[Rfam]
RNA sequence: UUGCAAUGAUGACAACUUAGGACACCUUUGGAUUACCCAUGAAAAUACUCACAAGACCUGAGCAAC
Numbered sequence: 001u002u003g004c005a006a007u008g009a010u011g012a013c014a015a016c017u018u019a020g021g022a023c024a025c026c027u028u029u030g031g032a033u034u035a036c037c038c039a040u041g042a043a044a045a046u047a048c049u050c051a052c053a054a055g056a057c058c059u060g061a062g063c064a065a066c
Stems, first nucleotide, its partner, number of pairs: 001065004

A member of the RNA family "Small nucleolar RNA SNORD58" from Gadus morhua, 66 nucleotides long. Rfam's curators write: snoRNA U58 is found in introns 1, 3 and 6 of the ribosomal protein RPL17 gene in humans. On this family, see Galardi et al., Mol Cell Biol 2002: "Purified box C/D snoRNPs are able to reproduce site-specific 2'-O-methylation of target RNA in vitro". The match comes from Rfam's covariance-model search (66 bits). The source organism's lineage runs through Eukaryota, Chordata, Actinopterygii, Ctenosquamata and Gadus. Rfam classes the family as a C/D-box small nucleolar RNA. Rfam 15.1 lists 2,484 matches to the family in 680 species. Its family is annotated with nucleolus and RNA processing in the Gene Ontology. The family's consensus secondary structure was predicted with PFOLD.